[Rfam]
RNA sequence: CUUGUCGUUGCUAUGGUAAUCCUGCUUAGUACGAGAGGAACCGCAGGUUCAGACAUUUGGUUUAUGUGCUUGGUCGAAAGACCAAUGGUGCGAAGCUACCAUCUGAGGGAUUAAGACUGAAAGCCUCUUAAGUCUGAAUCCCGCCCAGAAAUGCAACGAUACUAUCGGUGCCCCUACGCCGGGAGGCAACGAUAUACUCGGCCCGAAAUCCGAUUUCGGCGGCCGAGACUGGCUAAAGCCACUGCGAUACUGGCCACACCCGCUGUCUUGAAAUUUGGCAGUGGAGGCACAGACACGAUACCACUUGAUUGAGACGUAGGGGUUCUAUAUCGUUUGUAGACGACUUAGAUCUCGGUCGGGGUGCCGUACUUAGUUGAGCAGUUCUUCACUGCGAUCUAUUGAGGCUAAGCCUUUUGACGGGGAGAUAUGU
Numbered sequence: 001c002u003u004g005u006c007g008u009u010g011c012u013a014u015g016g017u018a019a020u021c022c023u024g025c026u027u028a029g030u031a032c033g034a035g036a037g038g039a040a041c042c043g044c045a046g047g048u049u050c051a052g053a054c055a056u057u058u059g060g061u062u063u064a065u066g067u068g069c070u071u072g073g074u075c076g077a078a079a080g081a082c083c084a085a086u087g088g089u090g091c092g093a094a095g096c097u098a099c100c101a102u103c104u105g106a107g108g109g110a111u112u113a114a115g116a117c118u119g120a121a122a123g124c125c126u127c128u129u130a131a132g133u134c135u136g137a138a139u140c141c142c143g144c145c146c147a148g149a150a151a152u153g154c155a156a157c158g159a160u161a162c163u164a165u166c167g168g169u170g171c172c173c174c175u176a177c178g179c180c181g182g183g184a185g186g187c188a189a190c191g192a193u194a195u196a197c198u199c200g201g202c203c204c205g206a207a208a209u210c211c212g213a214u215u216u217c218g219g220c221g222g223c224c225g226a227g228a229c230u231g232g233c234u235a236a237a238g239c240c241a242c243u244g245c246g247a248u249a250c251u252g253g254c255c256a257c258a259c260c261c262g263c264u265g266u267c268u269u270g271a272a273a274u275u276u277g278g279c280a281g282u283g284g285a286g287g288c289a290c291a292g293a294c295a296c297g298a299u300a301c302c303a304c305u306u307g308a309u310u311g312a313g314a315c316g317u318a319g320g321g322g323u324u325c326u327a328u329a330u331c332g333u334u335u336g337u338a339g340a341c342g343a344c345u346u347a348g349a350u351c352u353c354g355g356u357c358g359g360g361g362u363g364c365c366g367u368a369c370u371u372a373g374u375u376g377a378g379c380a381g382u383u384c385u386u387c388a389c390u391g392c393g394a395u396c397u398a399u400u401g402a403g404g405c406u407a408a409g410c411c412u413u414u415u416g417a418c419g420g421g422g423a424g425a426u427a428u429g430u
Stems, first nucleotide, its partner, number of pairs: 004160008014147003019049001021047005050105004058098003065092005070085006107142003114135005170323009327428005333347001336344001353420001355418004359412003363405002371398003378392005

Rfam assigns this 430-nucleotide part of an RNA from Macrostomum lignano to the family "Eukaryotic large subunit ribosomal RNA". The organism belongs to Macrostomum, within Eukaryota.